RNA sequence: ACGGGGACAUGGCGUAAAGCCCCGGGGGAGGAGAGGCUUCAACCAGAUUCUCAACUUGAACUGAUUUGCAUCUCAUUUU
Numbered sequence: 001a002c003g004g005g006g007a008c009a010u011g012g013c014g015u016a017a018a019g020c021c022c023c024g025g026g027g028g029a030g031g032a033g034a035g036g037c038u039u040c041a042a043c044c045a046g047a048u049u050c051u052c053a054a055c056u057u058g059a060a061c062u063g064a065u066u067u068g069c070a071u072c073u074c075a076u077u078u079u
Stems, first nucleotide, its partner, number of pairs: 004074004011021003027069001029067002

Overview: A member of the RNA family "ctgf/hcs24 CAESAR" from Rostratula benghalensis, 79 nucleotides long. A reference for the family is Kubota et al. (1999), "Involvement of cis-acting repressive element(s) in the 3'-untranslated region of human connective tissue growth factor gene", FEBS Lett. Rfam classes the family as a cis-regulatory element. From the family's description: The 3' UTR of human connective tissue growth factor/hypertrophic chondrocyte specific 24 (ctgf/hcs24) mRNA has been shown to repress ctgf gene expression. Reference identified a minimal RNA element, predicted to form a stable secondary structure, which acts as a post-transcriptional cis-acting element of structure-anchored repression (CAESAR), probably through direct interactions with as yet unknown nuclear factors. Pairs were carried over by alignment from the consensus structure, which is taken from published work. The match comes from Rfam's covariance-model search (57 bits).